[Rfam]
RNA sequence: GCCAGGGUCAAUCUAGCAGAGGGGGCACACACGGCCAAGGGUACCUAGUUACCGCGAUGCUCUGCCUCGGGAAGGUCUGAGAUAAAGUCGUCUCUCUUCGUUUUCGAAGGGAGGGACGCUCUAGAAGGGUGAUCUUGUAAAUAGGAUGCGAGGAAACCAGAAACAGCGGUGAACCAGCCUCUGUCGCCGUGGACGCCAAAUUUCUCUUCAUCCUUCCUCUCCUCCCCUUCUCCCUUUAAUGUUUGCCUCAUUUUCACGUUUCCUCUCCAACUUGGGUCCCUCUUAACCUUCUCUCUCUCUCUGUCUCCGCCUCCCUUAACCUCUCAUUCCUUGCGAGAUAAGGGUGCGGAGGAAACCUUGGCAGAGGUCGGCUGGUCAUACCGAUGGAAAUUCCCGCGACUCGCAAUUUCAGUACAAUCUGCAAGCCACCCCUCGGUGUGUCUACGUAUCCUCGUAUAUAUCCGUGGAAGGGACGUCUCGAAAGUGGAAGGAGAGGGGUGGAACUCAAUUCAGACUAAUCUGACUCUGGC
Numbered sequence: 001g002c003c004a005g006g007g008u009c010a011a012u013c014u015a016g017c018a019g020a021g022g023g024g025g026c027a028c029a030c031a032c033g034g035c036c037a038a039g040g041g042u043a044c045c046u047a048g049u050u051a052c053c054g055c056g057a058u059g060c061u062c063u064g065c066c067u068c069g070g071g072a073a074g075g076u077c078u079g080a081g082a083u084a085a086a087g088u089c090g091u092c093u094c095u096c097u098u099c100g101u102u103u104u105c106g107a108a109g110g111g112a113g114g115g116a117c118g119c120u121c122u123a124g125a126a127g128g129g130u131g132a133u134c135u136u137g138u139a140a141a142u143a144g145g146a147u148g149c150g151a152g153g154a155a156a157c158c159a160g161a162a163a164c165a166g167c168g169g170u171g172a173a174c175c176a177g178c179c180u181c182u183g184u185c186g187c188c189g190u191g192g193a194c195g196c197c198a199a200a201u202u203u204c205u206c207u208u209c210a211u212c213c214u215u216c217c218u219c220u221c222c223u224c225c226c227c228u229u230c231u232c233c234c235u236u237u238a239a240u241g242u243u244u245g246c247c248u249c250a251u252u253u254u255c256a257c258g259u260u261u262c263c264u265c266u267c268c269a270a271c272u273u274g275g276g277u278c279c280c281u282c283u284u285a286a287c288c289u290u291c292u293c294u295c296u297c298u299c300u301c302u303g304u305c306u307c308c309g310c311c312u313c314c315c316u317u318a319a320c321c322u323c324u325c326a327u328u329c330c331u332u333g334c335g336a337g338a339u340a341a342g343g344g345u346g347c348g349g350a351g352g353a354a355a356c357c358u359u360g361g362c363a364g365a366g367g368u369c370g371g372c373u374g375g376u377c378a379u380a381c382c383g384a385u386g387g388a389a390a391u392u393c394c395c396g397c398g399a400c401u402c403g404c405a406a407u408u409u410c411a412g413u414a415c416a417a418u419c420u421g422c423a424a425g426c427c428a429c430c431c432c433u434c435g436g437u438g439u440g441u442c443u444a445c446g447u448a449u450c451c452u453c454g455u456a457u458a459u460a461u462c463c464g465u466g467g468a469a470g471g472g473a474c475g476u477c478u479c480g481a482a483a484g485u486g487g488a489a490g491g492a493g494a495g496g497g498g499u500g501g502a503a504c505u506c507a508a509u510u511c512a513g514a515c516u517a518a519u520c521u522g523a524c525u526c527u528g529g530c
Stems, first nucleotide, its partner, number of pairs: 001530004008523003013425002016422004022068005040053004044048001077513005086401004117131005132147006148397003152393003167383005426501009
Rfam assigns this 530-nucleotide sequence from Apis mellifera to the family "Nuclear RNase P". Rfam's curators write: Ribonuclease P (RNase P) is a ubiquitous endoribonuclease, found in archaea, bacteria and eukarya as well as chloroplasts and mitochondria. Its best characterised activity is the generation of mature 5'-ends of tRNAs by cleaving the 5'-leader elements of precursor-tRNAs. Cellular RNase Ps are ribonucleoproteins. RNA from bacterial RNase Ps retains its catalytic activity in the absence of the protein subunit, i.e. it is a ribozyme. Taxonomically the source falls in Apis (Eukaryota, Pancrustacea, Eumetabola, Endopterygota). The family's RNA type in Rfam is ribozyme.